[Rfam]
The record is a 372-nucleotide RNA from Ramlibacter algicola, which matches "Bacterial RNase P class A" in Rfam. The base pairs follow the family's consensus structure, which is taken from published work. The family's RNA type in Rfam is ribozyme. Ribonuclease P (RNase P) is a ubiquitous endoribonuclease, found in archaea, bacteria and eukarya as well as chloroplasts and mitochondria.
RNA sequence: GGAGCACGCCAGGCCGCCGCUGGUGCAAGGGUCGCAAGGCCGCACUGGAGGAAGGUCCGGACUGCACAGGGCAGCGUAGGAGCUAACGACUCUCCACCGCGAGGUGAGGAUCAGAGCAACAGAGACGAGUCCGCGUUGCGCGCGGAUUCGCGCCGAGGCGCAAGCCGAGGCACGAGUCCCAACGCGCGAGGCGGGGUGAAACGGGCAAUCUCUACGCGCAGCAACACCGAAUAGGCCGGCAUUGACGUGGUCCCGCGGAGCCGGCGGGUAGGUGGCACCGAGCCGGGUGGGCGACCCCCGGCCCAGAGGAAUGGCGGUCACGGUGGGAGCAAUCCCACUGCACAGAAUCCGGCCUACCGGCGCGCUCCACAC
Numbered sequence: 001g002g003a004g005c006a007c008g009c010c011a012g013g014c015c016g017c018c019g020c021u022g023g024u025g026c027a028a029g030g031g032u033c034g035c036a037a038g039g040c041c042g043c044a045c046u047g048g049a050g051g052a053a054g055g056u057c058c059g060g061a062c063u064g065c066a067c068a069g070g071g072c073a074g075c076g077u078a079g080g081a082g083c084u085a086a087c088g089a090c091u092c093u094c095c096a097c098c099g100c101g102a103g104g105u106g107a108g109g110a111u112c113a114g115a116g117c118a119a120c121a122g123a124g125a126c127g128a129g130u131c132c133g134c135g136u137u138g139c140g141c142g143c144g145g146a147u148u149c150g151c152g153c154c155g156a157g158g159c160g161c162a163a164g165c166c167g168a169g170g171c172a173c174g175a176g177u178c179c180c181a182a183c184g185c186g187c188g189a190g191g192c193g194g195g196g197u198g199a200a201a202c203g204g205g206c207a208a209u210c211u212c213u214a215c216g217c218g219c220a221g222c223a224a225c226a227c228c229g230a231a232u233a234g235g236c237c238g239g240c241a242u243u244g245a246c247g248u249g250g251u252c253c254c255g256c257g258g259a260g261c262c263g264g265c266g267g268g269u270a271g272g273u274g275g276c277a278c279c280g281a282g283c284c285g286g287g288u289g290g291g292c293g294a295c296c297c298c299c300g301g302c303c304c305a306g307a308g309g310a311a312u313g314g315c316g317g318u319c320a321c322g323g324u325g326g327g328a329g330c331a332a333u334c335c336c337a338c339u340g341c342a343c344a345g346a347a348u349c350c351g352g353c354c355u356a357c358c359g360g361c362g363c364g365c366u367c368c369a370c371a372c
Base pairs, nucleotide, nucleotide: 001368002367003366004365005364007362008361009360010359012319013318014317015316016315017314018313020048021047022046023045024044025043026042053355054354055353057352058351059350060349061348062221063220064219065218069252070251074217075216076215077214078213079093080092081091082090094108095106096105097104098103109212110211114210115209116206117205131195132194133192134191136189137188138187139186140185141184225274226273227272228271235265236264237263238262239261240260246257247256248255249254282302283301284300285299286298287297289296290295